This 75-nucleotide sequence from Amaricoccus solimangrovi belongs to the Rfam family "Makes More Granules Regulator RNA (mmgR)".
Rfam classes the family as a small RNA.
Rfam describes the family as follows. SuhB later renamed mmgR (makes more granules regulator) was a putative non-coding RNA found multiple times in the Agrobacterium tumefaciens genome and related alpha-proteobacteria. Other non-coding RNAs uncovered in the same analysis include: speF, ybhL, metA, and serC.Several studies inSinorhizobium meliloti showed that suhB element is indeed a non-coding RNA:firstly it was detected on Northern blot and called Sm8RNA, secondly in an RNAseq study referred to as SmelC689.The mutant phenotype's (strain lacking the small RNA) cytoplasm contains higher content of polyhydroxybutyrate (PBH)storage granules than wild type strain. The sRNA is required to limit the PBH intracellular accumulation when the nitrogen-fixing Sinorhizobium meliloti is under condition of surplus carbon in relation to nitrogen.
Clan: suhB sRNA clan.
[Rfam]
RNA sequence: CAUAUCCGCCCAGCACAGGGCGUUUCCUCCCUGACUAGGCCGGGUCAUUGUGGCUCGGCCCUUUUUUUGGCGCAU
Numbered sequence: 001c002a003u004a005u006c007c008g009c010c011c012a013g014c015a016c017a018g019g020g021c022g023u024u025u026c027c028u029c030c031c032u033g034a035c036u037a038g039g040c041c042g043g044g045u046c047a048u049u050g051u052g053g054c055u056c057g058g059c060c061c062u063u064u065u066u067u068u069g070g071c072g073c074a075u
Stems, first nucleotide, its partner, number of pairs: 001018001038060009